[Rfam]
Nucleotides: 099
Base pairs, nucleotide, nucleotide: 006094007093008092009091010090011089012088013087020028021027030079031078032077033075037073038072039071
Number, partner (000 for none) and nucleotide at each position: 001000a002000g003000g004000a005000a006094g007093a008092u009091u010090a011089c012088g013087g014000g015000a016000g017000a018000g019000a020028c021027u022000u023000a024000u025000a026000u027021a028020g029000c030079a031078c032077c033075g034000a035000a036000g037073g038072a039071g040000u041000a042000a043000u044000u045000u046000a047000u048000a049000g050000a051000a052000u053000u054000g055000c056000c057000a058000a059000u060000c061000u062000a063000u064000a065000u066000u067000g068000a069000a070000u071039c072038u073037c074000a075033c076000a077032g078031g079030u080000a081000a082000a083000a084000g085000g086000a087013c088012c089011g090010u091009a092008a093007u094006u095000g096000g097000a098000c099000a
Notes:
The record is a 99-nucleotide RNA sequence from Paratissierella segnis, which matches "Glycine riboswitch aptamer" in Rfam. Lineage of the source: Bacteria > Bacillota > Tissierellia > Tissierellales > Paratissierella. On this family, see Mandal et al., Science 2004: "A glycine-dependent riboswitch that uses cooperative binding to control gene expression". A search with the family's covariance model found it, with a score of 52 bits.